[Rfam]
RNA: Glycine riboswitch aptamer
RNA sequence: UCCUGCCGCAGCGGGAGAGACCGGCCCCGAGCCGGCGCCGAAGGAGCAACCGCCCCGGAAACUCUCAGGUACCAGGGACCGCGCGGCUAAU
Numbered sequence: 001u002c003c004u005g006c007c008g009c010a011g012c013g014g015g016a017g018a019g020a021c022c023g024g025c026c027c028c029g030a031g032c033c034g035g036c037g038c039c040g041a042a043g044g045a046g047c048a049a050c051c052g053c054c055c056c057g058g059a060a061a062c063u064c065u066c067a068g069g070u071a072c073c074a075g076g077g078a079c080c081g082c083g084c085g086g087c088u089a090a091u
Base pairs, nucleotide, nucleotide: 006086007085008084009083011082012081013080014079021035022034023033024032037070038069039068040066041065044064045063046062050058051057